[Rfam]
RNA sequence: GCCCUCACUUCGAACUGUGGCGUUCAUCGCCGCGUUCCCCUCACGGGGAUAGAAGUGGGGGUUUUA
Number, nucleotide and partner (000 for none) at each position: 001g062002c061003c060004c059005u058006c057007a056008c055009u054010u053011c052012g000013a000014a000015c000016u034017g033018u032019g031020g030021c029022g028023u000024u000025c000026a000027u000028c022029g021030c020031c019032g018033c017034g016035u000036u049037c048038c047039c046040c045041u000042c000043a000044c000045g040046g039047g038048g037049a036050u000051a000052g011053a010054a009055g008056u007057g006058g005059g004060g003061g002062u001063u000064u000065u000066a000
Notes
DUF3800-IX RNA: a 66-nucleotide sequence. About the family: Actinobacteria, Firmicutes (1 example), Nitrospirae, Proteobacteria, Verrucomicrobia (1 example). The sequence is in the family's curated seed alignment.